A member of the RNA family "speF leader" from Neoaquamicrobium microcysteis, 152 nucleotides long. This family is a putative regulatory RNA structure that is found upstream of the speF gene encoding ornithine decarboxylase in Agrobacterium tumefaciens and other alpha-proteobacteria. A reference for the family is Corbino et al. (2005), "Evidence for a second class of S-adenosylmethionine riboswitches and other regulatory RNA motifs in alpha-proteobacteria", Genome Biol. Rfam classes the family as a cis-regulatory leader. The base pairs follow the family's consensus structure, which was predicted with RNAalifold.

Nucleotides: 152
Base pairs, nucleotide, nucleotide: 001023003021004020005019006018007017008016034050035049036048037047081089098142099141100140102138
Number, partner (000 for none) and nucleotide at each position: 001023u002000g003021c004020c005019g006018g007017u008016c009000g010000u011000c012000c013000a014000u015000a016008g017007a018006c019005c020004g021003g022000g023001g024000u025000u026000a027000c028000u029000g030000a031000a032000g033000a034050g035049g036048c037047a038000c039000a040000c041000c042000u043000u044000c045000a046000u047037u048036g049035c050034c051000g052000g053000c054000a055000g056000u057000g058000c059000g060000g061000a062000u063000g064000g065000u066000u067000c068000u069000c070000c071000c072000c073000u074000u075000c076000c077000a078000a079000a080000g081089c082000u083000g084000a085000g086000g087000c088000a089081g090000a091000c092000a093000a094000a095000g096000c097000g098142a099141a100140c101000u102138u103000u104000c105000g106000c107000c108000g109000c110000a111000a112000g113000g114000c115000g116000a117000g118000g119000g120000u121000u122000c123000a124000c125000c126000g127000c128000c129000a130000c131000g132000c133000g134000a135000u136000g137000c138102g139000c140100g141099u142098u143000u144000c145000a146000c147000g148000g149000u150000c151000c152000g